Gut-1 RNA: a 76-nucleotide RNA from Clostridium sp. CAG:226.
The base pairs follow the family's consensus structure, which is taken from published work.
It scores 73 bits against the family's covariance model.
The source organism's lineage runs through Bacteria, Bacillati, Bacillota, Clostridiaceae and Clostridium.
RNA sequence: CAGUGAAAUCCGCCUGAAGGCGGGUGAAAUAUUGCUUACGCAAUGUGAAAUAUGGCUCCGCCAUGUGAAAUCCUGC
Numbered sequence: 001c002a003g004u005g006a007a008a009u010c011c012g013c014c015u016g017a018a019g020g021c022g023g024g025u026g027a028a029a030u031a032u033u034g035c036u037u038a039c040g041c042a043a044u045g046u047g048a049a050a051u052a053u054g055g056c057u058c059c060g061c062c063a064u065g066u067g068a069a070a071u072c073c074u075g076c
Base pairs, nucleotide, nucleotide: 008025009024010023011022012021013020014019029046030045031044032043033042034041050066051065052064053063054062055061056060